[Rfam]
RNA: Small nucleolar RNA SNORD26
Organism: Nothocercus julius
RNA sequence: CUGCAGGGAUGAGACCCCUGAACUCUCUCUUUCCGAUGGCCGAGUGGGGAAACUAUGGGAGUCUGAGUGGC
Number, nucleotide and partner (000 for none) at each position: 001c070002u069003g068004c067005a000006g000007g000008g000009a000010u000011g000012a000013g000014a000015c000016c000017c000018c000019u000020g000021a000022a000023c000024u000025c000026u000027c000028u000029c000030u000031u000032u000033c000034c000035g000036a000037u000038g000039g000040c000041c000042g000043a000044g000045u000046g000047g000048g000049g000050a000051a000052a000053c000054u000055a000056u000057g000058g000059g000060a000061g000062u000063c000064u000065g000066a000067g004068u003069g002070g001071c000